[Rfam]
RNA sequence: UUUGUGUUCAGACUCCGAGUUUAAUAAAGCUAAGUGCCAGGCAUAAGUUUUUUAAACCGAUGGGUUAAACCGGAAACGGUUUGGCCUCCCGAUUUCACCAGGGGGUGAAUGACUUUGGAAAGGAGAAAAUCACGGCUCGA
Numbered sequence: 001u002u003u004g005u006g007u008u009c010a011g012a013c014u015c016c017g018a019g020u021u022u023a024a025u026a027a028a029g030c031u032a033a034g035u036g037c038c039a040g041g042c043a044u045a046a047g048u049u050u051u052u053u054a055a056a057c058c059g060a061u062g063g064g065u066u067a068a069a070c071c072g073g074a075a076a077c078g079g080u081u082u083g084g085c086c087u088c089c090c091g092a093u094u095u096c097a098c099c100a101g102g103g104g105g106u107g108a109a110u111g112a113c114u115u116u117g118g119a120a121a122g123g124a125g126a127a128a129a130u131c132a133c134g135g136c137u138c139g140a
Base pairs, nucleotide, nucleotide: 003134004133006131013125014124015123016122019057020056021055022054023053024052026051027050028049029048030047034044035043036042037041062087063086064085065084066083067082068081069080070079071078072077088118089117